[Rfam]
RNA: Small nucleolar RNA SNORA43
RNA sequence: CGGGUGCUGGACCUGCCGGCACCACAGACGUGGCUGCUGUGCUGCACUUGUGACUGACGCUAGGGCACAGGAAGGGGCUAUUUCUACGCUCAGCACUCCGAGCAGUGGGCACUGGGAAUGAUUUGUAGCCUGACAUGC
Numbered sequence: 001c002g003g004g005u006g007c008u009g010g011a012c013c014u015g016c017c018g019g020c021a022c023c024a025c026a027g028a029c030g031u032g033g034c035u036g037c038u039g040u041g042c043u044g045c046a047c048u049u050g051u052g053a054c055u056g057a058c059g060c061u062a063g064g065g066c067a068c069a070g071g072a073a074g075g076g077g078c079u080a081u082u083u084c085u086a087c088g089c090u091c092a093g094c095a096c097u098c099c100g101a102g103c104a105g106u107g108g109g110c111a112c113u114g115g116g117a118a119u120g121a122u123u124u125g126u127a128g129c130c131u132g133a134c135a136u137g138c
Base pairs, nucleotide, nucleotide: 004066005065007063008062009061010060024051025050026049027048076130077129078128085120086119089116090115096109097108098107